The record is a 77-nucleotide RNA from Myotis myotis, which matches "mir-9193 microRNA precursor family" in Rfam. A search with the family's covariance model found it, with a score of 57 bits. The source organism's lineage runs through Eukaryota, Euteleostomi, Boreoeutheria, Vespertilionidae and Myotis. Its family is annotated with miRNA-mediated post-transcriptional gene silencing and RISC complex in the Gene Ontology.
RNA sequence: CUCGGGGGGAAGGGGGUGUUCCUCAGCCGAGAUUGGGAGAGGGCACAGGUCAGGCUGAGGGACCCUACCAGUACACA
Numbered sequence: 001c002u003c004g005g006g007g008g009g010a011a012g013g014g015g016g017u018g019u020u021c022c023u024c025a026g027c028c029g030a031g032a033u034u035g036g037g038a039g040a041g042g043g044c045a046c047a048g049g050u051c052a053g054g055c056u057g058a059g060g061g062a063c064c065c066u067a068c069c070a071g072u073a074c075a076c077a
Base pairs, nucleotide, nucleotide: 004074006072009069015066016065018063019062020061021060022059023058024057025056026055027054028053031050033048034047035046037044